mir-8517 microRNA precursor family: a 104-nucleotide RNA sequence from Plutella xylostella. A search with the family's covariance model found it, with a score of 84 bits. NCBI's taxonomy places the organism under Eukaryota, Bilateria, Panorpida, Glossata, Plutella. Its family is annotated with miRNA-mediated post-transcriptional gene silencing and RISC complex in the Gene Ontology.
RNA sequence: UCGUAGCUAAAGCUAAUGAACUGUUUUGUCACUCUCUGACAGAGAACAAUUUGUUCUUUGACAGAGAGUGACAAAACAGUUCAAUAACUAAAGCGUCCAGUAAC
Numbered sequence: 001u002c003g004u005a006g007c008u009a010a011a012g013c014u015a016a017u018g019a020a021c022u023g024u025u026u027u028g029u030c031a032c033u034c035u036c037u038g039a040c041a042g043a044g045a046a047c048a049a050u051u052u053g054u055u056c057u058u059u060g061a062c063a064g065a066g067a068g069u070g071a072c073a074a075a076a077c078a079g080u081u082c083a084a085u086a087a088c089u090a091a092a093g094c095g096u097c098c099a100g101u102a103a104c
Stems, first nucleotide, its partner, number of pairs: 001099001007093002011089002014086002017083008025065007045055004